Shown here is a 78-nucleotide RNA sequence from Mycobacterium ulcerans, a member of the family "6C RNA". Lineage of the source: Bacteria > Actinomycetes > Mycobacteriaceae > Mycobacterium > Mycobacterium ulcerans. The base pairs follow the family's consensus structure, which is taken from published work.
Nucleotides: 078
Stems, first nucleotide, its partner, number of pairs: 002034004007029007035074013
Number, partner (000 for none) and nucleotide at each position: 001000g002034g003033u004032g005031c006000a007029u008028c009027a010026g011025u012024c013023c014000g015000a016000c017000c018000c019000g020000c021000c022000g023013g024012g025011g026010c027009u028008g029007a030000a031005g032004c033003a034002c035074g036073a037072c038071g039070a040069c041068c042067u043066c044065c045064g046063c047062c048000u049000c050000c051000u052000c053000c054000c055000c056000c057000c058000c059000c060000c061000u062047g063046g064045c065044g066043g067042g068041g069040g070039u071038c072037g073036u074035c075000c076000c077000u078000u